[Rfam]
Rfam assigns this 77-nucleotide sequence from Culex quinquefasciatus to the family "mir-1 microRNA precursor family". This family represents the microRNA (miRNA) mir-1 family. miRNAs are transcribed as ~70nt precursors (modelled here) and subsequently processed by the Dicer enzyme to give a ~22nt product. In this case the mature sequence comes from the 3' arm of the precursor. The extents of the hairpin precursors are not generally known and are estimated based on hairpin prediction. The products are thought to have regulatory roles through complementarity to mRNA. The involvement of Dicer in miRNA processing suggests a relationship with the phenomenon of RNA interference. miRNAs are numbered based on the sequence of the mature RNA. This family also contains the mir-206 from human, which appears to be related to mir-1. It scores 50 bits against the family's covariance model. The literature on the family includes a 2001 paper in Cell by Ambros, "microRNAs: tiny regulators with great potential".

RNA sequence: CCGAGCGCUCCAUACUUCUUUACAUUCCAUACGUUUCAAAGAUCACUAUUGAAUGCAAGGAAGCAUGGAACUUUCGC
Numbered sequence: 001c002c003g004a005g006c007g008c009u010c011c012a013u014a015c016u017u018c019u020u021u022a023c024a025u026u027c028c029a030u031a032c033g034u035u036u037c038a039a040a041g042a043u044c045a046c047u048a049u050u051g052a053a054u055g056c057a058a059g060g061a062a063g064c065a066u067g068g069a070a071c072u073u074u075c076g077c
Stems, first nucleotide, its partner, number of pairs: 007071001009069005015063007023055003027051001029049003